Nucleotides: 093
Base pairs, nucleotide, nucleotide: 003093004092006091007090
Number, partner (000 for none) and nucleotide at each position: 001000g002000a003093g004092u005000u006091a007090g008000u009000g010000c011000u012000g013000a014000c015000u016000a017000u018000a019000a020000a021000a022000a023000u024000a025000a026000u027000c028000u029000u030000u031000c032000a033000u034000u035000c036000u037000g038000a039000c040000u041000u042000g043000u044000u045000u046000a047000a048000u049000u050000u051000u052000g053000g054000u055000a056000u057000g058000a059000c060000a061000a062000a063000c064000a065000u066000c067000u068000u069000a070000u071000u072000a073000u074000g075000a076000u077000c078000a079000u080000a081000g082000a083000a084000u085000c086000u087000g088000a089000g090007c091006u092004a093003u
The family of this 93-nucleotide sequence from Theobroma cacao is "Small nucleolar RNA snoR8a".
The family's RNA type in Rfam is C/D-box small nucleolar RNA.
Rfam 15.1 lists 956 matches to the family in 245 species.
For this family Rfam cites "Multiple snoRNA gene clusters from Arabidopsis" (Brown et al., RNA, 2001).
The base pairs follow the family's consensus structure, which was predicted with WAR.
Gene Ontology terms of the family: nucleolus and RNA processing.